Rfam assigns this 223-nucleotide RNA from Octodon degus to the family "Small nucleolar RNA SNORD17". Pairs were carried over by alignment from the consensus structure, which was predicted with RNAalifold. The family's RNA type in Rfam is C/D-box small nucleolar RNA. Rfam's curators write: The snoRNA HBI-43 belongs to the C/D family of snoRNAs, guiding 2'O-ribose methylation at position U3797 of the 28S rRNA. Pseudouridylation in position U3797 is predicted to be guided by the H/ACA snoRNA ACA48.
RNA sequence: GUGAAGUGAUGAUUCAGUUUAUCCAUUCGCUGAGUGAGCCAUGCUGACCUCCUUCAAGCCCCAGUUCCUGUUCUAGGGACUUGGGCCGUGUGGCCUCCGGUGCUGUGUGGCCUGCAGCGUUCUGCUGUGGGUGCCAAGUACUGGGGGCUGCGGGAGGAUGGUCAGAGGUGGCAGGGUGGGAUAGAAGUCCCACUCACCAAGAUGAGUGGUAGAAUCUGAUCAC
Numbered sequence: 001g002u003g004a005a006g007u008g009a010u011g012a013u014u015c016a017g018u019u020u021a022u023c024c025a026u027u028c029g030c031u032g033a034g035u036g037a038g039c040c041a042u043g044c045u046g047a048c049c050u051c052c053u054u055c056a057a058g059c060c061c062c063a064g065u066u067c068c069u070g071u072u073c074u075a076g077g078g079a080c081u082u083g084g085g086c087c088g089u090g091u092g093g094c095c096u097c098c099g100g101u102g103c104u105g106u107g108u109g110g111c112c113u114g115c116a117g118c119g120u121u122c123u124g125c126u127g128u129g130g131g132u133g134c135c136a137a138g139u140a141c142u143g144g145g146g147g148c149u150g151c152g153g154g155a156g157g158a159u160g161g162u163c164a165g166a167g168g169u170g171g172c173a174g175g176g177u178g179g180g181a182u183a184g185a186a187g188u189c190c191c192a193c194u195c196a197c198c199a200a201g202a203u204g205a206g207u208g209g210u211a212g213a214a215u216c217u218g219a220u221c222a223c
Stems, first nucleotide, its partner, number of pairs: 010222005017215004023209007030201002034197002038172004042167001044165006050158006058086004064080006090151007102139003107134002110132010174195008